[Rfam]
RNA sequence: GUUGGUGUUAAUGAUGACUAAUCUUUUUUCCCCAGCAGAUCGACAGUGUUGACUGCCUGACUUUUUUUUAAGCCAAACUUGUCUGAUACACCAAC
Dot-bracket structure: ((((((((...............................................................................))))))))

Annotation:
The family of this 95-nucleotide sequence from Albula goreensis is "Small nucleolar SNORD12/SNORD106". The family is grouped with related families in Rfam's "SNORD12 clan".